The record is a 215-nucleotide sequence, which matches "PAGEV RNA" in Rfam.
Rfam classes the family as a small RNA.
RNA sequence: CGAGGCUUGGAAUCAUGAUGCUGUGGGCCUCGCCAGCGUCAAGCGGGUGAUCACGGGGAUCUCCACACACCCGCCGGUAUAGCCGUUGUCUGCUUAAAGUAGGCCGCCGAGAGAUGCCCGCAUUGCUCUCGGUGCUCCGAAUUUCAUAUAGCAGCAGCGCCAUGCGCCGUGGAGGGGUAAGCCGAGUUGGACGGCUUAGAAAGCGUGGAACGCCG
Numbered sequence: 001c002g003a004g005g006c007u008u009g010g011a012a013u014c015a016u017g018a019u020g021c022u023g024u025g026g027g028c029c030u031c032g033c034c035a036g037c038g039u040c041a042a043g044c045g046g047g048u049g050a051u052c053a054c055g056g057g058g059a060u061c062u063c064c065a066c067a068c069a070c071c072c073g074c075c076g077g078u079a080u081a082g083c084c085g086u087u088g089u090c091u092g093c094u095u096a097a098a099g100u101a102g103g104c105c106g107c108c109g110a111g112a113g114a115u116g117c118c119c120g121c122a123u124u125g126c127u128c129u130c131g132g133u134g135c136u137c138c139g140a141a142u143u144u145c146a147u148a149u150a151g152c153a154g155c156a157g158c159g160c161c162a163u164g165c166g167c168c169g170u171g172g173a174g175g176g177g178u179a180a181g182c183c184g185a186g187u188u189g190g191a192c193g194g195c196u197u198a199g200a201a202a203g204c205g206u207g208g209a210a211c212g213c214c215g
Stems, first nucleotide, its partner, number of pairs: 001032007043074006062173005084159005090154005160208006178198006